[Rfam]
RNA sequence: UUGCCGGUGCAAGUCCGGUCCGGGUAGGUGCCAGGAGGCCCGGUGGCAGGCUGGCGGUUUCGUCUGGAAACGGGCGGGGGCGAAGCCCAGCGUCAAAGGGCCUUUUGGGGAAGCGACGGUGCGGUCCGUAGCGUGA
Numbered sequence: 001u002u003g004c005c006g007g008u009g010c011a012a013g014u015c016c017g018g019u020c021c022g023g024g025u026a027g028g029u030g031c032c033a034g035g036a037g038g039c040c041c042g043g044u045g046g047c048a049g050g051c052u053g054g055c056g057g058u059u060u061c062g063u064c065u066g067g068a069a070a071c072g073g074g075c076g077g078g079g080g081c082g083a084a085g086c087c088c089a090g091c092g093u094c095a096a097a098g099g100g101c102c103u104u105u106u107g108g109g110g111a112a113g114c115g116a117c118g119g120u121g122c123g124g125u126c127c128g129u130a131g132c133g134u135g136a
Stems, first nucleotide, its partner, number of pairs: 020043005050091005055082002058079003064073001066071001101110003113129003
The family of this 136-nucleotide RNA sequence from Actinocrinis puniceicyclus is "Group II catalytic intron D1-D4-4". The pairing is the family consensus, mapped onto this sequence. Group II introns are found in rRNA, tRNA and mRNA of organelles in fungi, plants and protists, and also in mRNA in bacteria.